[Rfam]
RNA sequence: GCCCGGUUGAUCCUCGGUGGUCCGGGGUGCAGGCUUCAAACCUGUAACUGACUAGCGUCAGUGUGGUUCGAUUCCACCUACUGGGC
Numbered sequence: 001g002c003c004c005g006g007u008u009g010a011u012c013c014u015c016g017g018u019g020g021u022c023c024g025g026g027g028u029g030c031a032g033g034c035u036u037c038a039a040a041c042c043u044g045u046a047a048c049u050g051a052c053u054a055g056c057g058u059c060a061g062u063g064u065g066g067u068u069c070g071a072u073u074c075c076a077c078c079u080a081c082u083g084g085g086c
Base pairs, nucleotide, nucleotide: 001086002085003084004083005082006081007080009078012027013026014025015024016023017022028046029045030044031043032042033041048061049060050059051058052057063077064076065075066074
Shown here is an 86-nucleotide RNA from Thrips palmi, a member of the family "Selenocysteine transfer RNA". It scores 80 bits against the family's covariance model.